RNA sequence: CACACGUGGGCAUUGCGGCUCUCGGGGAGAAAUCCCGAUCGUCGCUCCGGUGUCUGAAACCCCAGCUUUUCCGGGCUUUUUUGGAAAAGGGGAGCAGAUGACAGGCCCACGGUGGACCAACCGGAGAAGAUCUUAUGG
Numbered sequence: 001c002a003c004a005c006g007u008g009g010g011c012a013u014u015g016c017g018g019c020u021c022u023c024g025g026g027g028a029g030a031a032a033u034c035c036c037g038a039u040c041g042u043c044g045c046u047c048c049g050g051u052g053u054c055u056g057a058a059a060c061c062c063c064a065g066c067u068u069u070u071c072c073g074g075g076c077u078u079u080u081u082u083g084g085a086a087a088a089g090g091g092g093a094g095c096a097g098a099u100g101a102c103a104g105g106c107c108c109a110c111g112g113u114g115g116a117c118c119a120a121c122c123g124g125a126g127a128a129g130a131u132c133u134u135a136u137g138g
Stems, first nucleotide, its partner, number of pairs: 001114003005111007015045002023037002026035001052099005
The family of this 138-nucleotide sequence from Pelagibius litoralis is "rpsB sRNA". Rfam 15.1 lists 245 matches to the family in 245 species. By type it is a small RNA. A search with the family's covariance model found it, with a score of 60 bits. The literature on the family includes a 2009 paper in BMC Genomics by Meyer et al., "Identification of candidate structured RNAs in the marine organism 'Candidatus Pelagibacter ubique'".